[Rfam]
Nucleotides: 067
Stems, first nucleotide, its partner, number of pairs: 004062002008058002010029001012027001014026004034055001037052001039051005
Number, partner (000 for none) and nucleotide at each position: 001000u002000g003000g004062c005061c006000g007000u008058c009057g010029g011000a012027u013000c014026g015025a016024u017023c018000u019000c020000g021000c022000g023017g024016g025015u026014c027012a028000c029010c030000a031000c032000c033000a034055g035000g036000u037052a038000c039051u040050c041049g042048c043047g044000c045000a046000g047043c048042g049041c050040g051039a052037u053000c054000g055034c056000g057009u058008g059000c060000a061005g062004g063000u064000g065000c066000u067000c

Annotation: The record is a 67-nucleotide RNA from Mycobacterium triviale, which matches "ASdes TB sRNA" in Rfam. Rfam classes the family as a small RNA. A search with the family's covariance model found it, with a score of 59 bits.